[Rfam]
RNA sequence: UUUGGGACUCUAUCAAAAAGCAAUUACUUGUGUAUAUUUUUCAGUAAGUGCUUUUUGUUGGGGUACCUUUC
Numbered sequence: 001u002u003u004g005g006g007a008c009u010c011u012a013u014c015a016a017a018a019a020g021c022a023a024u025u026a027c028u029u030g031u032g033u034a035u036a037u038u039u040u041u042c043a044g045u046a047a048g049u050g051c052u053u054u055u056u057g058u059u060g061g062g063g064u065a066c067c068u069u070u071c
Stems, first nucleotide, its partner, number of pairs: 004067002007064005014057004019052004024047001026045003
RNA: miR-430 microRNA precursor family